[Rfam]
RNA: BsrF
Organism: Peribacillus loiseleuriae
RNA sequence: GCGAUGAGCUAAUUUGCAUAAGACGAGGAACAUGCUUUACGCACGUUAGGGAUGUGGCCCAACGGUUUCUCGCCGCAAACGCAUCAAAGACGCCUGCUUUGCAGGCGUC
Numbered sequence: 001g002c003g004a005u006g007a008g009c010u011a012a013u014u015u016g017c018a019u020a021a022g023a024c025g026a027g028g029a030a031c032a033u034g035c036u037u038u039a040c041g042c043a044c045g046u047u048a049g050g051g052a053u054g055u056g057g058c059c060c061a062a063c064g065g066u067u068u069c070u071c072g073c074c075g076c077a078a079a080c081g082c083a084u085c086a087a088a089g090a091c092g093c094c095u096g097c098u099u100u101g102c103a104g105g106c107g108u109c
Base pairs, nucleotide, nucleotide: 014078015077016076017075024072025071026070027069028068029067030066031065034042035041044064045063049059050058089109090108091107092106093105094104095103096102097101
Dot-bracket structure: .............((((......((((((((..((.....)).((...((.......))...))))))))))..))))..........(((((((((...)))))))))